[Rfam]
RNA: Small Cajal body specific RNA 6
RNA sequence: GGUCAAUGAUGAUUGGUAAAAGGUCUGAUUGCACUUAAUGUCACAGUCCCUUCCUUGCCCUCAGCUCCCAGCAGCCCAUUUUUUCCUCCUAUCACAUUUAAGUCAUGUGCAUGGGAUAAUGGAGCAGCUGAUAAUUGGGAUUCUGUCAGUGUGUGUUUCUGAGAGUGGUCAGUUCACAGCUGACAACUAUCCAACAGAACCAGCCUUCAGGAGCGUGACGAGGGCAACCAUGGGUGUGAUGGUGCAUGAUCUCAAGUUUUCAAUCUGAGACC
Number, nucleotide and partner (000 for none) at each position: 001g272002g271003u270004c269005a000006a000007u000008g000009a000010u000011g000012a000013u000014u000015g000016g000017u000018a000019a000020a000021a000022g000023g000024u000025c000026u000027g000028a000029u000030u000031g000032c000033a000034c000035u000036u000037a000038a252039u000040g250041u249042c248043a000044c000045a000046g000047u226048c000049c224050c223051u222052u221053c220054c000055u000056u000057g000058c000059c000060c000061u000062c000063a000064g000065c213066u212067c211068c210069c130070a129071g128072c127073a000074g125075c124076c000077c000078a000079u000080u000081u000082u000083u000084u000085c000086c000087u000088c115089c114090u113091a112092u111093c000094a000095c109096a108097u107098u000099u000100a000101a000102g000103u000104c000105a000106u000107g097108u096109g095110c000111a092112u091113g090114g089115g088116a000117u000118a000119a000120u000121g000122g000123a000124g075125c074126a000127g072128c071129u070130g069131a000132u000133a000134a000135u000136u000137g192138g000139g191140a190141u189142u000143c000144u186145g000146u000147c000148a000149g000150u000151g000152u178153g177154u176155g175156u000157u000158u172159c000160u168161g000162a000163g000164a000165g000166u000167g000168g160169u000170c000171a000172g158173u000174u000175c155176a154177c153178a152179g000180c000181u000182g000183a000184c000185a000186a144187c000188u000189a141190u140191c139192c137193a000194a000195c000196a000197g000198a000199a000200c000201c000202a000203g000204c000205c000206u000207u000208c000209a000210g068211g067212a066213g065214c000215g000216u000217g000218a000219c000220g053221a052222g051223g050224g049225c000226a047227a000228c000229c000230a000231u000232g000233g000234g000235u000236g000237u000238g000239a000240u000241g000242g000243u000244g000245c000246a000247u000248g042249a041250u040251c000252u038253c000254a000255a000256g000257u000258u000259u000260u000261c000262a000263a000264u000265c000266u000267g000268a000269g004270a003271c002272c001